RNA sequence: ACCGCACGGGCACUAGGCCUUCACUGUGAUCUGCAGAAUGCCUGUUACUCUCUGAGAUCAUUGUGAAAGCUCUUUGCCUUGCUUGU
Numbered sequence: 001a002c003c004g005c006a007c008g009g010g011c012a013c014u015a016g017g018c019c020u021u022c023a024c025u026g027u028g029a030u031c032u033g034c035a036g037a038a039u040g041c042c043u044g045u046u047a048c049u050c051u052c053u054g055a056g057a058u059c060a061u062u063g064u065g066a067a068a069g070c071u072c073u074u075u076g077c078c079u080u081g082c083u084u085g086u
Base pairs, nucleotide, nucleotide: 009078010077011076012075016071017070018069020067021066022065023064024063027060028059029058030057031056032055035053036052037051039047
RNA: mir-81 microRNA precursor family